Background:
Rfam assigns this 77-nucleotide RNA from Medicago truncatula to the family "MIR5269 microRNA precursor family".
RNA sequence: UUGAUUUAAAUUAUUGUGGAUCUACACUUUGAAAAUUGAACAUGCACAAAGUGGUGGGAUAUACUAAUUUCAUCCUA
Numbered sequence: 001u002u003g004a005u006u007u008a009a010a011u012u013a014u015u016g017u018g019g020a021u022c023u024a025c026a027c028u029u030u031g032a033a034a035a036u037u038g039a040a041c042a043u044g045c046a047c048a049a050a051g052u053g054g055u056g057g058g059a060u061a062u063a064c065u066a067a068u069u070u071c072a073u074c075c076u077a
Stems, first nucleotide, its partner, number of pairs: 001077001003075001006072001008070006015063004022057003025053007